[Rfam]
RNA sequence: AUAUGUUUUGGGAAUGAAGUUCUCCCAUUGAUACAUUCCUUGUAUCACAAACCGCUGGUUAAGGCUGAUGACUUCUGCGAAUUU
Numbered sequence: 001a002u003a004u005g006u007u008u009u010g011g012g013a014a015u016g017a018a019g020u021u022c023u024c025c026c027a028u029u030g031a032u033a034c035a036u037u038c039c040u041u042g043u044a045u046c047a048c049a050a051a052c053c054g055c056u057g058g059u060u061a062a063g064g065c066u067g068a069u070g071a072c073u074u075c076u077g078c079g080a081a082u083u084u
Base pairs, nucleotide, nucleotide: 010026011025012024013023016075017074018073019072020071021070054065055064056063